[Rfam]
RNA sequence: UCCCGUUGCAGGUCCGGUCUGAUCUGCACCUCCCUGUUGGACUGGCCCGGGCUUCGGCUCGGGCCUUUUU
Numbered sequence: 001u002c003c004c005g006u007u008g009c010a011g012g013u014c015c016g017g018u019c020u021g022a023u024c025u026g027c028a029c030c031u032c033c034c035u036g037u038u039g040g041a042c043u044g045g046c047c048c049g050g051g052c053u054u055c056g057g058c059u060c061g062g063g064c065c066u067u068u069u070u
Stems, first nucleotide, its partner, number of pairs: 008027007045064008
The record is a 70-nucleotide sequence from Poseidonocella pacifica, which matches "Singlet oxygen resistance RNA X" in Rfam. The base pairs follow the family's consensus structure. Rfam's curators write: SorX (RSs2461)like SorY is a singlet oxygen induced sRNA that counteracts oxidative stress by targeting mRNA for a transporter in Rhodobacter. It also has an impact on resistance against organic hydroperoxides. It targets SD sequence of potA mRNA via an aSD sequence. The family has 8 seed sequences and 528 matches in Rfam 15.1. The match comes from Rfam's covariance-model search (61 bits). NCBI's taxonomy places the organism under Bacteria, Pseudomonadota, Alphaproteobacteria, Roseobacteraceae, Poseidonocella.